Shown here is an 87-nucleotide sequence from Populus trichocarpa, a member of the family "small nucleolar RNA snoR117".
Nucleotides: 087
Stems, first nucleotide, its partner, number of pairs: 001086004
Number, partner (000 for none) and nucleotide at each position: 001086a002085g003084c004083c005000u006000g007000u008000g009000a010000u011000g012000c013000a014000u015000c016000a017000a018000a019000a020000u021000u022000g023000u024000c025000c026000g027000u028000a029000c030000c031000a032000u033000c034000u035000g036000a037000g038000a039000u040000c041000u042000u043000u044000c045000u046000g047000u048000a049000u050000c051000u052000u053000u054000g055000a056000u057000g058000a059000c060000a061000c062000a063000c064000a065000a066000a067000c068000u069000u070000g071000u072000a073000u074000a075000g076000a077000u078000u079000c080000u081000g082000a083004g084003g085002c086001u087000u